[Rfam]
RNA sequence: AGCACGAUAUACACGGAUACACCUUGGCGAUACUCGGUGCCGGUGUCGAUCCGCCAGUGUCGUGCGAG
Numbered sequence: 001a002g003c004a005c006g007a008u009a010u011a012c013a014c015g016g017a018u019a020c021a022c023c024u025u026g027g028c029g030a031u032a033c034u035c036g037g038u039g040c041c042g043g044u045g046u047c048g049a050u051c052c053g054c055c056a057g058u059g060u061c062g063u064g065c066g067a068g
Stems, first nucleotide, its partner, number of pairs: 002065007015052004021044002026041003
A member of the RNA family "Trypanosomatid snoRNA TB9Cs3H1" from Wallacemonas collosoma, 68 nucleotides long. It is annotated as an H/ACA-box small nucleolar RNA. Gene Ontology terms of the family: RNA processing and nucleolus. The literature on the family includes a 2005 paper in RNA by Liang et al., "A genome-wide analysis of C/D and H/ACA-like small nucleolar RNAs in Trypanosoma brucei reveals a trypanosome-specific pattern of rRNA modification".